[Rfam]
RNA sequence: CUCACUGUCAUUGGGGAGUAGCCAUCCUCCUGCGGCGGCCGCCAGGCGCGCAUGCAUCGAGGAAUCCGCGUCAACAUACUUGAAGCCUAGGCUUCAUGGCGCGGGUGGUUGUCGCAGGCAUUCGGUUUGCGGCAGUCC
Numbered sequence: 001c002u003c004a005c006u007g008u009c010a011u012u013g014g015g016g017a018g019u020a021g022c023c024a025u026c027c028u029c030c031u032g033c034g035g036c037g038g039c040c041g042c043c044a045g046g047c048g049c050g051c052a053u054g055c056a057u058c059g060a061g062g063a064a065u066c067c068g069c070g071u072c073a074a075c076a077u078a079c080u081u082g083a084a085g086c087c088u089a090g091g092c093u094u095c096a097u098g099g100c101g102c103g104g105g106u107g108g109u110u111g112u113c114g115c116a117g118g119c120a121u122u123c124g125g126u127u128u129g130c131g132g133c134a135g136u137c138c
Stems, first nucleotide, its partner, number of pairs: 026062003064106010081096005
RNA: Manganese Mn2+ riboswitch aptamer (yybP-ykoY)
Organism: Dyella choica